[Rfam]
RNA sequence: GUUUAUCUGACGAGUUUUGUGCAAAGCACAAAACAUCGCAUUAUUAUAUGUAGUUUUACAAAAGCAAAACUACUUGAAAAAACUUUUUUCAGGAUUUGCCAAUCCUUUCAAAAAGUUUUUAUAGGA
Numbered sequence: 001g002u003u004u005a006u007c008u009g010a011c012g013a014g015u016u017u018u019g020u021g022c023a024a025a026g027c028a029c030a031a032a033a034c035a036u037c038g039c040a041u042u043a044u045u046a047u048a049u050g051u052a053g054u055u056u057u058a059c060a061a062a063a064g065c066a067a068a069a070c071u072a073c074u075u076g077a078a079a080a081a082a083c084u085u086u087u088u089u090c091a092g093g094a095u096u097u098g099c100c101a102a103u104c105c106u107u108u109c110a111a112a113a114a115g116u117u118u119u120u121a122u123a124g125g126a
Base pairs, nucleotide, nucleotide: 012037013036014034015033016032017031018030019029020028021027050073051072052071053070054069055068056067057066078120079119080118081117082116083115084114085113086112087111088110091106092105093104094103095102096101
RNA: TD-1 RNA
Organism: Treponema pedis